[Rfam]
RNA sequence: GUGAUUCAAAGAGGAUAGGUGAAAUUCCUUAUCGGUGGUAUAGUCCACAACUCCUAUUAUUAGGACUGACAUGGUGCAAUUCCAUGACCGACGGUUAUAGUCCGGAUGGUAUUUAGAAUCAA
Numbered sequence: 001g002u003g004a005u006u007c008a009a010a011g012a013g014g015a016u017a018g019g020u021g022a023a024a025u026u027c028c029u030u031a032u033c034g035g036u037g038g039u040a041u042a043g044u045c046c047a048c049a050a051c052u053c054c055u056a057u058u059a060u061u062a063g064g065a066c067u068g069a070c071a072u073g074g075u076g077c078a079a080u081u082c083c084a085u086g087a088c089c090g091a092c093g094g095u096u097a098u099a100g101u102c103c104g105g106a107u108g109g110u111a112u113u114u115a116g117a118a119u120c121a122a
Base pairs, nucleotide, nucleotide: 003120004119005118006117007116008114009113010112017029018028019027031101032100033090034089035048036047037046038045043088044087052065053064070086071085072084073083074082092104093103094102

FMN riboswitch aptamer (RFN element): a 122-nucleotide RNA from Porphyromonas levii. The organism belongs to Porphyromonas, within Bacteria. The base pairs follow the family's consensus structure, which is taken from published work. The RFN element is a highly conserved domain that is found frequently in the 5'-untranslated regions of prokaryotic mRNAs that encode for flavin mononucleotide (FMN) biosynthesis and transport proteins. This element is a metabolite-dependent riboswitch that directly binds FMN in the absence of proteins. In Bacillus subtilis, the riboswitch most likely controls gene expression by causing premature transcription termination within the 5' untranslated region of the ribDEAHT operon and precluding access to the ribosome-binding site of ypaA mRNA.The FMN riboswitch structure, reported in present an FMN-bound six-stem junction, adopts a butterfly-like scaffold, stapled together by opposingly directed but nearly identically folded peripheral domains.